[Rfam]
RNA sequence: AAAAAGGGUAUCCGAGUCAGGUGUUCGCAACGAAAGCGCGCCGAGUCGCACUGCGCCUUGGGACCAUCUAGCAUCCUUCGGGGAGCGGGGGUCGAGUUUCCAAUCUGCUCACCCUUCGAUGGGAUCCCUAUGUGCCCAGUGGGGUAUGGCUUUGCAUAUCCGAGGCUCAAUUUUUGAAUGUGGGGCUUGACAGCUGCACCUCGUAUGGUCCGAAUGGUACGGACCUGUGCGCUGCGCCCCG
Numbered sequence: 001a002a003a004a005a006g007g008g009u010a011u012c013c014g015a016g017u018c019a020g021g022u023g024u025u026c027g028c029a030a031c032g033a034a035a036g037c038g039c040g041c042c043g044a045g046u047c048g049c050a051c052u053g054c055g056c057c058u059u060g061g062g063a064c065c066a067u068c069u070a071g072c073a074u075c076c077u078u079c080g081g082g083g084a085g086c087g088g089g090g091g092u093c094g095a096g097u098u099u100c101c102a103a104u105c106u107g108c109u110c111a112c113c114c115u116u117c118g119a120u121g122g123g124a125u126c127c128c129u130a131u132g133u134g135c136c137c138a139g140u141g142g143g144g145u146a147u148g149g150c151u152u153u154g155c156a157u158a159u160c161c162g163a164g165g166c167u168c169a170a171u172u173u174u175u176g177a178a179u180g181u182g183g184g185g186c187u188u189g190a191c192a193g194c195u196g197c198a199c200c201u202c203g204u205a206u207g208g209u210c211c212g213a214a215u216g217g218u219a220c221g222g223a224c225c226u227g228u229g230c231g232c233u234g235c236g237c238c239c240c241g
Stems, first nucleotide, its partner, number of pairs: 008166002011163002013048003017044001049141005055135002057132001059130004142161007183239004191234004196230004